[Rfam]
RNA sequence: CCGUAAGAAAAAGCGCCAGGACAGACUCAAAGGUCUGUUGACGAGGAGAAGGAGGCUGCAUUGAUUGCUGGCUUACUGUGUCCGGUUACCGAUGGAUGUCAAUGAUAAAUUUUUGUUGAUGAUCGAUAAUAGGGGCUUUGAGAGCAGCAGUUAAUGCAAAUUAUCGAGUUUUCGGCGGAAACCUUCCGGUUUGCCACAACCGUCAGAGCUCUACAAAAACUGCAGGCGACUGCAGAACAGAAGGAGCUUGAGUGGCUAA
Numbered sequence: 001c002c003g004u005a006a007g008a009a010a011a012a013g014c015g016c017c018a019g020g021a022c023a024g025a026c027u028c029a030a031a032g033g034u035c036u037g038u039u040g041a042c043g044a045g046g047a048g049a050a051g052g053a054g055g056c057u058g059c060a061u062u063g064a065u066u067g068c069u070g071g072c073u074u075a076c077u078g079u080g081u082c083c084g085g086u087u088a089c090c091g092a093u094g095g096a097u098g099u100c101a102a103u104g105a106u107a108a109a110u111u112u113u114u115g116u117u118g119a120u121g122a123u124c125g126a127u128a129a130u131a132g133g134g135g136c137u138u139u140g141a142g143a144g145c146a147g148c149a150g151u152u153a154a155u156g157c158a159a160a161u162u163a164u165c166g167a168g169u170u171u172u173c174g175g176c177g178g179a180a181a182c183c184u185u186c187c188g189g190u191u192u193g194c195c196a197c198a199a200c201c202g203u204c205a206g207a208g209c210u211c212u213a214c215a216a217a218a219a220c221u222g223c224a225g226g227c228g229a230c231u232g233c234a235g236a237a238c239a240g241a242a243g244g245a246g247c248u249u250g251a252g253u254g255g256c257u258a259a
Stems, first nucleotide, its partner, number of pairs: 020039008048186005061175004187202005206249007220235006
This 259-nucleotide sequence from Clostridium thermosuccinogenes belongs to the Rfam family "glmS glucosamine-6-phosphate activated ribozyme aptamer". The organism belongs to Clostridium, within Bacteria.